Small nucleolar RNA SNORD14: a 124-nucleotide RNA sequence from Trifolium pratense. Its family is annotated with RNA processing and nucleolus in the Gene Ontology. It scores 80 bits against the family's covariance model. On this family, see Samarsky et al., Nucleic Acids Res 1996: "An essential domain in Saccharomyces cerevisiae U14 snoRNA is absent in vertebrates, but conserved in other yeasts". Rfam's curators write: U14 small nucleolar RNA (U14 snoRNA) is required for early cleavages of eukaryotic precursor rRNAs. In yeasts, this molecule possess a stem-loop region (known as the Y-domain) which is essential for function. A similar structure, but with a different consensus sequence, is found in plants, but is absent in vertebrates.

RNA sequence: CGUCUAUGAUGAUAAUAUUUUAGGCUUGUUUCUCAAAACAUUCGCAGUGGCCGACUAAGAGCUUUCGCCUUUCGCCGGGCUUGAGAGCUAAUGCUGCUUUAUCCUUCCUUGGAUGUCUGAGAUG
Numbered sequence: 001c002g003u004c005u006a007u008g009a010u011g012a013u014a015a016u017a018u019u020u021u022a023g024g025c026u027u028g029u030u031u032c033u034c035a036a037a038a039c040a041u042u043c044g045c046a047g048u049g050g051c052c053g054a055c056u057a058a059g060a061g062c063u064u065u066c067g068c069c070u071u072u073c074g075c076c077g078g079g080c081u082u083g084a085g086a087g088c089u090a091a092u093g094c095u096g097c098u099u100u101a102u103c104c105u106u107c108c109u110u111g112g113a114u115g116u117c118u119g120a121g122a123u124g
Stems, first nucleotide, its partner, number of pairs: 001124004061088006
Dot-bracket structure: ((((........................................................((((((................))))))................................))))